[Rfam]
RNA sequence: GGCCCGGCUCUUGCUGAGCCUCCCCCAGGUAGCCAACGGCGGUUGCCCACCGAACGACAAAGGCGUCGC
Numbered sequence: 001g002g003c004c005c006g007g008c009u010c011u012u013g014c015u016g017a018g019c020c021u022c023c024c025c026c027a028g029g030u031a032g033c034c035a036a037c038g039g040c041g042g043u044u045g046c047c048c049a050c051c052g053a054a055c056g057a058c059a060a061a062g063g064c065g066u067c068g069c
Stems, first nucleotide, its partner, number of pairs: 028047007
The record is a 69-nucleotide RNA sequence from Pseudomonas sp. FeS53a, which matches "narK RNA" in Rfam. Taxonomically the source falls in Pseudomonas (Bacteria, Pseudomonadati, Gammaproteobacteria, Pseudomonadales). It is annotated as a cis-regulatory element.